[Rfam]
RNA sequence: UUGUCAGUGCGAUACCGCUGCUGCAAGCAGCAUUCCCAUGUUGCCACGACCUUCAAGGCAACGCGCAGGCCCAGCCUGUGUGGUCGACCCCCAACCCGCCCCGCUACCCUUUUGCGGGUGAUCGCUGCGGCGAUGGUAGC
Numbered sequence: 001u002u003g004u005c006a007g008u009g010c011g012a013u014a015c016c017g018c019u020g021c022u023g024c025a026a027g028c029a030g031c032a033u034u035c036c037c038a039u040g041u042u043g044c045c046a047c048g049a050c051c052u053u054c055a056a057g058g059c060a061a062c063g064c065g066c067a068g069g070c071c072c073a074g075c076c077u078g079u080g081u082g083g084u085c086g087a088c089c090c091c092c093a094a095c096c097c098g099c100c101c102c103g104c105u106a107c108c109c110u111u112u113u114g115c116g117g118g119u120g121a122u123c124g125c126u127g128c129g130g131c132g133a134u135g136g137u138a139g140c
Base pairs, nucleotide, nucleotide: 011034012033013032017031018030019029020028021027022026040062041061042060043059044058045057048085049084050083051082063081064080065079066078067077068076069075114140115139121134122133123132124131125130
A member of the RNA family "radC RNA" from Gibbsiella quercinecans, 140 nucleotides long. Rfam 15.1 lists 500 matches to the family in 142 species. By type it is a cis-regulatory element. The match comes from Rfam's covariance-model search (63 bits).